[Rfam]
RNA sequence: UAUGCAAAGCGUAUGAUGAGAAAGCACUGAAAGUGACUCUGUAUGAACUGCGUUCAGUCCAACGCUGAGCUUUGUGUC
Numbered sequence: 001u002a003u004g005c006a007a008a009g010c011g012u013a014u015g016a017u018g019a020g021a022a023a024g025c026a027c028u029g030a031a032a033g034u035g036a037c038u039c040u041g042u043a044u045g046a047a048c049u050g051c052g053u054u055c056a057g058u059c060c061a062a063c064g065c066u067g068a069g070c071u072u073u074g075u076g077u078c
Base pairs, nucleotide, nucleotide: 002077003076004075005074006073007072008071009070010069

The record is a 78-nucleotide sequence from Cochlearius cochlearius, which matches "Small nucleolar RNA SNORD69" in Rfam. A reference for the family is Huttenhofer et al. (2001), "RNomics: an experimental approach that identifies 201 candidates for novel, small, non-messenger RNAs in mouse", EMBO J. From the family's description: snoRNA HBII-210 belongs to the C/D family of snoRNAs. It is the human orthologue of the mouse MBII-210 and is predicted to guide the 2'O-ribose methylation of large 28S rRNA on residue G4464. Rfam classes the family as a C/D-box small nucleolar RNA. Its family is annotated with RNA processing and nucleolus in the Gene Ontology.